[Rfam]
RNA sequence: UGUGCCGCCGGACGGGAUGGGUCAUGAGGGUUGGGGAACCUGUUGAUGGGCUUGUUUCCGAGAGGUGCUUGGGUCCAAGGGAGCCCGGGUGGUUCGUUUCGGCGAAGGAG
Number, nucleotide and partner (000 for none) at each position: 001u000002g000003u000004g000005c000006c104007g103008c102009c101010g100011g099012a098013c060014g059015g058016g057017a000018u054019g053020g052021g051022u050023c049024a000025u000026g000027a000028g041029g040030g039031u038032u037033g000034g000035g000036g000037a032038a031039c030040c029041u028042g000043u000044u000045g000046a000047u000048g000049g023050g022051c021052u020053u019054g018055u000056u000057u016058c015059c014060g013061a000062g095063a094064g093065g000066u091067g090068c000069u000070u087071g086072g085073g084074u083075c000076c000077a000078a000079g000080g000081g000082a000083g074084c073085c072086c071087g070088g000089g000090u067091g066092g000093u064094u063095c062096g000097u000098u012099u011100c010101g009102g008103c007104g006105a000106a000107g000108g000109a000110g000
The record is a 110-nucleotide RNA, which matches "Actinomyces-1 RNA" in Rfam. It is annotated as a small RNA. The family's consensus secondary structure is taken from published work.